[Rfam]
RNA sequence: UGACGGGGGCCCGCACAAGCGGUGGAGCAUGUGGUUUAAUUCGAAGCAACGCGAAGAACCUUACCUACUCUUGAAAUCCAGUGAACUUAGCAGAGAUGCUUUGGUGCCUUCGGGAACACUGAGACAGGUGCUGCAUGGCUGUCGUCAGCUCGUGUUGUGAAAUGUUGGGUUAAGUCCCGUAACGAGCGCAACCCCUAUCCUUAGUUGCCAGCGAGUAAUGUCGGGGACUCUAAGGAGACUGCCGGUGACAAACCGGAGGAAGGCGGGGAUGACGUCAAGUCAUCAUGGCCCUUACGAGUAGGGCUACACACGUGCUACAAUGGCGUAUACAGAGGGUUGCGAAGCCGCGAGGUGGAGCUAAUCUCACAAAGUACGUCGUAGUCCGGAUUGGAGUCUGCAACUCGACUCCAUGAAGUCGGAAUCGCUAGUAAUCGUGAAUCAGAAUGUCACGGUGAAUACGUUCCCGGGCCUUGUACACACCGCCCGUCACACCAUGGGAGUUGAUUGCACCAGAAGUGGGUAGCUUAAAAUUGGGCGCUCACCACGGUGUGGUUAAUGACUGGGGUGAAGUCGUAACAAGG
Numbered sequence: 001u002g003a004c005g006g007g008g009g010c011c012c013g014c015a016c017a018a019g020c021g022g023u024g025g026a027g028c029a030u031g032u033g034g035u036u037u038a039a040u041u042c043g044a045a046g047c048a049a050c051g052c053g054a055a056g057a058a059c060c061u062u063a064c065c066u067a068c069u070c071u072u073g074a075a076a077u078c079c080a081g082u083g084a085a086c087u088u089a090g091c092a093g094a095g096a097u098g099c100u101u102u103g104g105u106g107c108c109u110u111c112g113g114g115a116a117c118a119c120u121g122a123g124a125c126a127g128g129u130g131c132u133g134c135a136u137g138g139c140u141g142u143c144g145u146c147a148g149c150u151c152g153u154g155u156u157g158u159g160a161a162a163u164g165u166u167g168g169g170u171u172a173a174g175u176c177c178c179g180u181a182a183c184g185a186g187c188g189c190a191a192c193c194c195c196u197a198u199c200c201u202u203a204g205u206u207g208c209c210a211g212c213g214a215g216u217a218a219u220g221u222c223g224g225g226g227a228c229u230c231u232a233a234g235g236a237g238a239c240u241g242c243c244g245g246u247g248a249c250a251a252a253c254c255g256g257a258g259g260a261a262g263g264c265g266g267g268g269a270u271g272a273c274g275u276c277a278a279g280u281c282a283u284c285a286u287g288g289c290c291c292u293u294a295c296g297a298g299u300a301g302g303g304c305u306a307c308a309c310a311c312g313u314g315c316u317a318c319a320a321u322g323g324c325g326u327a328u329a330c331a332g333a334g335g336g337u338u339g340c341g342a343a344g345c346c347g348c349g350a351g352g353u354g355g356a357g358c359u360a361a362u363c364u365c366a367c368a369a370a371g372u373a374c375g376u377c378g379u380a381g382u383c384c385g386g387a388u389u390g391g392a393g394u395c396u397g398c399a400a401c402u403c404g405a406c407u408c409c410a411u412g413a414a415g416u417c418g419g420a421a422u423c424g425c426u427a428g429u430a431a432u433c434g435u436g437a438a439u440c441a442g443a444a445u446g447u448c449a450c451g452g453u454g455a456a457u458a459c460g461u462u463c464c465c466g467g468g469c470c471u472u473g474u475a476c477a478c479a480c481c482g483c484c485c486g487u488c489a490c491a492c493c494a495u496g497g498g499a500g501u502u503g504a505u506u507g508c509a510c511c512a513g514a515a516g517u518g519g520g521u522a523g524c525u526u527a528a529a530a531u532u533g534g535g536c537g538c539u540c541a542c543c544a545c546g547g548u549g550u551g552g553u554u555a556a557u558g559a560c561u562g563g564g565g566u567g568a569a570g571u572c573g574u575a576a577c578a579a580g581g
Base pairs, nucleotide, nucleotide: 001477002476003474004473005472007471008470009469010468011467012466013465015461016460019425020424021423022422023421024318026316027315028314029313030312031311032310033309034307035306040055041054042053043052064302065301066300067299068298069297070296077124078123079121080120081119082118083117086103089100090099091098092097105116107114108113127291128290130289131288132287133286136285137284138280139279140278141276143274144273148187149186150185151184152183153182154163155162156161166179167178168177169176193268194267195266196265198236199235200234201233202232203231204230208225209224212223213222214221239259240258242256243255244254245253246252322377323376324375325374326373327372328371334365335364336363339358340357344353345352346351384415389410390409391408392407393406394405395404431453432452433451434450435449436448437447480580482577485573486572490567491566492565493564495562496561497560500557501556502555503554504553505552506551507550508549509548510547511546516542517541518540519539520538521537523536524535525534526533

The record is a 581-nucleotide part of an RNA from Reinekea blandensis, which matches "Bacterial small subunit ribosomal RNA" in Rfam. For this family Rfam cites "Crystal structure of the ribosome at 5.5 A resolution" (Yusupov et al., Science, 2001). The source organism's lineage runs through Bacteria, Gammaproteobacteria, Oceanospirillales, Reinekea and Reinekea blandensis.